About this RNA: Iron response element I: a 35-nucleotide RNA from Mesocricetus auratus. The family has 62 seed sequences and 6,829 matches in Rfam 15.1. NCBI's taxonomy places the organism under Eukaryota, Teleostomi, Tetrapoda, Eutheria, Mesocricetus. Rfam links the family to the GO term response to iron ion. The family's RNA type in Rfam is cis-regulatory element.
[Rfam]
RNA sequence: CUGCGUCUUGCUUCAACAGGGUUUGGAUGGAACAG
Numbered sequence: 001c002u003g004c005g006u007c008u009u010g011c012u013u014c015a016a017c018a019g020g021g022u023u024u025g026g027a028u029g030g031a032a033c034a035g
Base pairs, nucleotide, nucleotide: 001035002034003033006031007030008029010028012027013026014025015024016023017021